About this RNA:
The record is a 56-nucleotide RNA sequence from Planococcus rifietoensis, which matches "Bacillaceae-1 RNA" in Rfam. The source organism's lineage runs through Bacteria, Bacillota, Caryophanales, Caryophanaceae and Planococcus. Pairs were carried over by alignment from the consensus structure, which is taken from published work. The family's RNA type in Rfam is small RNA.

[Rfam]
RNA sequence: GGCAGCUGAAAACGCGACGUCCUGUCGCAUCAGCUGCAUGACCUGCAUCCUGCAGG
Numbered sequence: 001g002g003c004a005g006c007u008g009a010a011a012a013c014g015c016g017a018c019g020u021c022c023u024g025u026c027g028c029a030u031c032a033g034c035u036g037c038a039u040g041a042c043c044u045g046c047a048u049c050c051u052g053c054a055g056g
Stems, first nucleotide, its partner, number of pairs: 002037006014028005042056005